RNA sequence: GAUGAAUCGGGCGAUGGAGUUCGCCAUUAACCGUCUUUUGCAGACUAAUGACUCCUACCAGUGA
Numbered sequence: 001g002a003u004g005a006a007u008c009g010g011g012c013g014a015u016g017g018a019g020u021u022c023g024c025c026a027u028u029a030a031c032c033g034u035c036u037u038u039u040g041c042a043g044a045c046u047a048a049u050g051a052c053u054c055c056u057a058c059c060a061g062u063g064a
Base pairs, nucleotide, nucleotide: 010025011024012023013022016055017054018053019052020051021050033045034044035043036042
Record summary:
Shown here is a 64-nucleotide sequence from Paenibacillus agri, a member of the family "Fluoride riboswitch aptamer (crcB RNA motif)". The source organism's lineage runs through Bacteria, Bacillati, Bacilli, Caryophanales and Paenibacillus. It scores 58 bits against the family's covariance model.